[Rfam]
RNA sequence: ACACGGGAAAGGAGGUGGUCCGAGGAAUGAGUUCUUCGAGGACGCGUGAGGUGGCUGCCCACUAGCAGCGCACCGCCCAGCCGCGUGAGCGCGCUGGUGAAUUCCAAGCAGUCACCCGACCCGCAGACGAUCCGGGAACACGUCCCCCGGAGCGGCCGAACCCUCGGCCACGUCUGCGGGUCGCCUGCU
Numbered sequence: 001a002c003a004c005g006g007g008a009a010a011g012g013a014g015g016u017g018g019u020c021c022g023a024g025g026a027a028u029g030a031g032u033u034c035u036u037c038g039a040g041g042a043c044g045c046g047u048g049a050g051g052u053g054g055c056u057g058c059c060c061a062c063u064a065g066c067a068g069c070g071c072a073c074c075g076c077c078c079a080g081c082c083g084c085g086u087g088a089g090c091g092c093g094c095u096g097g098u099g100a101a102u103u104c105c106a107a108g109c110a111g112u113c114a115c116c117c118g119a120c121c122c123g124c125a126g127a128c129g130a131u132c133c134g135g136g137a138a139c140a141c142g143u144c145c146c147c148c149g150g151a152g153c154g155g156c157c158g159a160a161c162c163c164u165c166g167g168c169c170a171c172g173u174c175u176g177c178g179g180g181u182c183g184c185c186u187g188c189u
Base pairs, nucleotide, nucleotide: 014059015058016057017056018055019054060099061098062097063096064095065094066093068092069091070090071089074087075086076085117183118182119181120180121179122178123177124176125175126174127173128172129171131151132150133149134148135147136146
RNA: Actinobacteria sRNA Ms_IGR-5